[Rfam]
RNA sequence: AUUACUGGAUGAGGCGCAAAAAUCAUCAGUACCUAUUGCAACACGACCUGUAAGUCGGCAUAGGGAAAGGGAAAUUUGCCGAAAUGGUUCACUUUUUACAUGGGAGUGAAUUGUUGGGCUGCAUAUGAACAAUAUGCAGACUGCCGUGUAGCUUUUGCUUGACGGAGUGCUUCCACUUGU
Dot-bracket structure: .....((((.(....(((((..((.......(((((.......................)))))......))..)))))...((((((((((((.........))))))))))))((.((((((((.....)))))))).)).((((..(........)..))))....).)))).....